[Rfam]
About this RNA:
The record is an 89-nucleotide RNA sequence from Thauera linaloolentis, which matches "Glycine riboswitch aptamer" in Rfam. The source organism's lineage runs through Bacteria, Betaproteobacteria, Zoogloeaceae, Thauera and Thauera linaloolentis. From the family's description: This family represents the bacterial glycine riboswitch.
RNA sequence: GCGCGGCAUGCGGGAGAGAACUCCCGACUCGGAGUCGCCGAAGGCGCAACCCCCCGGAACCGCUCAGGCAAAAGGACCGCAUGCAAAGU
Numbered sequence: 001g002c003g004c005g006g007c008a009u010g011c012g013g014g015a016g017a018g019a020a021c022u023c024c025c026g027a028c029u030c031g032g033a034g035u036c037g038c039c040g041a042a043g044g045c046g047c048a049a050c051c052c053c054c055c056g057g058a059a060c061c062g063c064u065c066a067g068g069c070a071a072a073a074g075g076a077c078c079g080c081a082u083g084c085a086a087a088g089u
Base pairs, nucleotide, nucleotide: 006084007083008082009081010080011079012078013077020035021034022033023032037069038068039067040065041064044063045062046061050057051056